A member of the RNA family "SmY spliceosomal RNA" from Caenorhabditis briggsae, 81 nucleotides long. On this family, see MacMorris et al., RNA 2007: "A novel family of C. elegans snRNPs contains proteins associated with trans-splicing". The family's consensus secondary structure is taken from published work. The family's RNA type in Rfam is spliceosomal small nuclear RNA. The sequence is in the family's curated seed alignment. NCBI's taxonomy places the organism under Eukaryota, Metazoa, Bilateria, Rhabditoidea, Caenorhabditis.
RNA sequence: UCAUUAAAUACUUGAGUACAGGGCCUUUCACAAGACCCGAUGUACAAUUUUUGGAGACCCUGUCCUCUCUCGGGCAGGGUU
Numbered sequence: 001u002c003a004u005u006a007a008a009u010a011c012u013u014g015a016g017u018a019c020a021g022g023g024c025c026u027u028u029c030a031c032a033a034g035a036c037c038c039g040a041u042g043u044a045c046a047a048u049u050u051u052u053g054g055a056g057a058c059c060c061u062g063u064c065c066u067c068u069c070u071c072g073g074g075c076a077g078g079g080u081u
Base pairs, nucleotide, nucleotide: 021038022037023036025034026033027032057080058079059078060077061076062075063074064073065072